[Rfam]
RNA sequence: GACUGAUAACUGCCGAAUUCUCGCACCAAGAAGCGGGGGACCCGACCAUUUAUGGGUGAAUUGAUCAAUAUUAAAGUGAUCAUAGGGAACCUUCAACCGAAUCCUUAGCUAACCUCGCAGGCAUUGGAAGGAGUAUUA
Numbered sequence: 001g002a003c004u005g006a007u008a009a010c011u012g013c014c015g016a017a018u019u020c021u022c023g024c025a026c027c028a029a030g031a032a033g034c035g036g037g038g039g040a041c042c043c044g045a046c047c048a049u050u051u052a053u054g055g056g057u058g059a060a061u062u063g064a065u066c067a068a069u070a071u072u073a074a075a076g077u078g079a080u081c082a083u084a085g086g087g088a089a090c091c092u093u094c095a096a097c098c099g100a101a102u103c104c105u106u107a108g109c110u111a112a113c114c115u116c117g118c119a120g121g122c123a124u125u126g127g128a129a130g131g132a133g134u135a136u137u138a
Base pairs, nucleotide, nucleotide: 011123012122013121014120018032019031020030033118034117035116036115037114038113054104055103056102062082063081064080065079066078067077085098086097

This 138-nucleotide sequence from Paenibacillus sp. TCA20 belongs to the Rfam family "c-di-AMP riboswitch aptamer (ydaO/yuaA leader)". The source organism's lineage runs through Bacteria, Bacillati, Bacilli, Paenibacillaceae and Paenibacillus.